Annotation
The family of this 123-nucleotide sequence from Sporotomaculum syntrophicum is "Molybdenum/Tungsten riboswitch aptamer (Moco RNA motif)". Pairs were carried over by alignment from the consensus structure, which is taken from published work. Lineage of the source: Bacteria > Bacillati > Eubacteriales > Desulfallaceae > Sporotomaculum.
RNA sequence: AGUUAAAACAUUCUCCGAGUCUGUAACACCUGUAAACAUAUAUCGUUUUGGUGUACAGACCGGCAGGGUAUAUCGGGAAACUGGUAUGCCUCCCUUGUGGAAAGGAGAACUGAGUCUUAUUUG
Number, nucleotide and partner (000 for none) at each position: 001a000002g000003u000004u000005a000006a000007a000008a000009c000010a000011u109012u108013c107014u106015c105016c104017g000018a000019g060020u059021c058022u057023g056024u055025a000026a054027c053028a052029c051030c050031u000032g000033u000034a048035a047036a046037c045038a000039u000040a000041u000042a000043u000044c000045g037046u036047u035048u034049u000050g030051g029052u028053g027054u026055a024056c023057a022058g021059a020060c019061c000062g000063g000064c000065a000066g091067g090068g089069u088070a087071u086072a085073u084074c083075g082076g081077g000078a000079a000080a000081c076082u075083g074084g073085u072086a071087u070088g069089c068090c067091u066092c100093c099094c000095u000096u000097g000098u000099g093100g092101a000102a000103a000104g016105g015106a014107g013108a012109a011110c000111u000112g000113a000114g000115u000116c000117u000118u000119a000120u000121u000122u000123g000